[Rfam]
RNA sequence: GACCUUCGACCCUGCGCACUCCUCCUCCCAGCGCAGCGUCGAUUUGACUGACGACACUCCUCCUCCCAGUCGUCAGUCUGUCAAAAUGACGCUCACCGGAUCCUCCUCCCCCGGUGAGCGUUAUUU
Numbered sequence: 001g002a003c004c005u006u007c008g009a010c011c012c013u014g015c016g017c018a019c020u021c022c023u024c025c026u027c028c029c030a031g032c033g034c035a036g037c038g039u040c041g042a043u044u045u046g047a048c049u050g051a052c053g054a055c056a057c058u059c060c061u062c063c064u065c066c067c068a069g070u071c072g073u074c075a076g077u078c079u080g081u082c083a084a085a086a087u088g089a090c091g092c093u094c095a096c097c098g099g100a101u102c103c104u105c106c107u108c109c110c111c112c113g114g115u116g117a118g119c120g121u122u123a124u125u126u
Stems, first nucleotide, its partner, number of pairs: 007041003012036006046078010089121011
Alphaproteobacterial ar14: a 126-nucleotide RNA sequence from Paenirhizobium selenitireducens.
Smr14C2 was renamed NfeR1 (Nodule Formation Efficiency RNA) highly expressed in salt stress and during the symbiotic interaction on legume roots.
It is annotated as a small RNA.
The base pairs follow the family's consensus structure.